[Rfam]
RNA: Gag/pol translational readthrough site
RNA sequence: UAGGGAGGACAGGGUUCGGAUCCCCUCCCCAAACCUAGGGUAACAUUGCAAGUGGAGGGGAC
Numbered sequence: 001u002a003g004g005g006a007g008g009a010c011a012g013g014g015u016u017c018g019g020a021u022c023c024c025c026u027c028c029c030c031a032a033a034c035c036u037a038g039g040g041u042a043a044c045a046u047u048g049c050a051a052g053u054g055g056a057g058g059g060g061a062c
Base pairs, nucleotide, nucleotide: 008041010039012036013035014034015033016031018029019028022060023059024058025057026056027055